[Rfam]
RNA sequence: GGGGAUACACUUAGAGUCCCCUGGAUAGCGUGUGUUAAUAGCAACGUCCUGUGGCCGGGAUUUGCGGUUAGUGAAUC
Numbered sequence: 001g002g003g004g005a006u007a008c009a010c011u012u013a014g015a016g017u018c019c020c021c022u023g024g025a026u027a028g029c030g031u032g033u034g035u036u037a038a039u040a041g042c043a044a045c046g047u048c049c050u051g052u053g054g055c056c057g058g059g060a061u062u063u064g065c066g067g068u069u070a071g072u073g074a075a076u077c
Stems, first nucleotide, its partner, number of pairs: 001021006035071005041065003046061005